[Rfam]
RNA sequence: AUUGCUAAUGAUGAACAACUUACUUUCGCCCCUAACUGAAAAAAUAAAAAUUUUUGUGUUGAAUGCGAUUUGAUUGGUCUUACUGAGUAGUUAAU
Numbered sequence: 001a002u003u004g005c006u007a008a009u010g011a012u013g014a015a016c017a018a019c020u021u022a023c024u025u026u027c028g029c030c031c032c033u034a035a036c037u038g039a040a041a042a043a044a045u046a047a048a049a050a051u052u053u054u055u056g057u058g059u060u061g062a063a064u065g066c067g068a069u070u071u072g073a074u075u076g077g078u079c080u081u082a083c084u085g086a087g088u089a090g091u092u093a094a095u
Stems, first nucleotide, its partner, number of pairs: 001092001002090005
The family of this 95-nucleotide sequence from Ceratitis capitata is "Small nucleolar RNA Me28S-Gm1083".
Rfam links the family to the GO terms RNA processing and nucleolus.
Rfam classes the family as a C/D-box small nucleolar RNA.
A search with the family's covariance model found it, with a score of 61 bits.
A reference for the family is Huang et al. (2005), "Genome-wide analyses of two families of snoRNA genes from Drosophila melanogaster, demonstrating the extensive utilization of introns for coding of snoRNAs", RNA.